[Rfam]
RNA sequence: GGCGGUUCUCAGGUGACACACCCCGGAACCUGGCUCCCUCCUCUCUGGUUCUGGGUGCGUCACCCGAAAACUGCA
Numbered sequence: 001g002g003c004g005g006u007u008c009u010c011a012g013g014u015g016a017c018a019c020a021c022c023c024c025g026g027a028a029c030c031u032g033g034c035u036c037c038c039u040c041c042u043c044u045c046u047g048g049u050u051c052u053g054g055g056u057g058c059g060u061c062a063c064c065c066g067a068a069a070a071c072u073g074c075a
Stems, first nucleotide, its partner, number of pairs: 002074002005071003009067002012064006019057005025052006032045002
A member of the RNA family "mir-9223 microRNA precursor family" from Myotis myotis, 75 nucleotides long.
The source organism's lineage runs through Eukaryota, Gnathostomata, Sarcopterygii, Yangochiroptera and Myotis.